[Rfam]
RNA sequence: ACUCUUAUAGCUUAAUAUUAAAGUAUAGCGCUGAAAACGCUAAGAUGAACCCUAAAAAGUUCUAGGGGUA
Numbered sequence: 001a002c003u004c005u006u007a008u009a010g011c012u013u014a015a016u017a018u019u020a021a022a023g024u025a026u027a028g029c030g031c032u033g034a035a036a037a038c039g040c041u042a043a044g045a046u047g048a049a050c051c052c053u054a055a056a057a058a059g060u061u062c063u064a065g066g067g068g069u070a
Base pairs, nucleotide, nucleotide: 001069002068003067004066005065006064007063010024011023012022013021026042027041028040029039030038047062048061049060050059
The record is a 70-nucleotide sequence, which matches "tRNA" in Rfam. Pairs were carried over by alignment from the consensus structure, which is taken from published work. Its family is annotated with triplet codon-amino acid adaptor activity in the Gene Ontology.